[Rfam]
RNA: Lysine riboswitch aptamer
Organism: Brevibacillus brevis
RNA sequence: GGUGGGGAUAGAGGUCGCGGCUUUUAUAUCAUCCUGUACGAGAUUCAGAGAAAAUCAAUGACUCCAGGUAAGGAAAAUCCGCCGAAGCUCAUAUCGCGUCUCUGUGCGAUUGGGUUGGGGCUGUACUCGAAAGGGGCAGAACUGUCACGUUUGCAUGCCAAGCAAACGUGGUGAGCUAUCUUCAGU
Numbered sequence: 001g002g003u004g005g006g007g008a009u010a011g012a013g014g015u016c017g018c019g020g021c022u023u024u025u026a027u028a029u030c031a032u033c034c035u036g037u038a039c040g041a042g043a044u045u046c047a048g049a050g051a052a053a054a055u056c057a058a059u060g061a062c063u064c065c066a067g068g069u070a071a072g073g074a075a076a077a078u079c080c081g082c083c084g085a086a087g088c089u090c091a092u093a094u095c096g097c098g099u100c101u102c103u104g105u106g107c108g109a110u111u112g113g114g115u116u117g118g119g120g121c122u123g124u125a126c127u128c129g130a131a132a133g134g135g136g137c138a139g140a141a142c143u144g145u146c147a148c149g150u151u152u153g154c155a156u157g158c159c160a161a162g163c164a165a166a167c168g169u170g171g172u173g174a175g176c177u178a179u180c181u182u183c184a185g186u
Stems, first nucleotide, its partner, number of pairs: 006181006017082004022077004033068004038063001086116006093110005117143002121139004126134002145171009